[Rfam]
RNA sequence: UCGGUCCCGGUUCACGUCCAUCCGAAUUGCGGGCGACCCGGGCC
Numbered sequence: 001u002c003g004g005u006c007c008c009g010g011u012u013c014a015c016g017u018c019c020a021u022c023c024g025a026a027u028u029g030c031g032g033g034c035g036a037c038c039c040g041g042g043c044c
Stems, first nucleotide, its partner, number of pairs: 003044003007041004015035005
Rfam assigns this 44-nucleotide RNA from Mycobacterium sp. URHD0025 to the family "L31-Actinobacteria ribosomal protein leader". The literature on the family includes a 2020 paper in BMC Microbiol by Eckert and Weinberg, "Discovery of 20 novel ribosomal leader candidates in bacteria and archaea". Rfam's curators put it in the seed alignment. Its Rfam clan is "Ribosomal Protein L31 Leader clan". NCBI's taxonomy places the organism under Bacteria, Actinomycetes, Mycobacteriales, Mycobacteriaceae, Mycobacterium.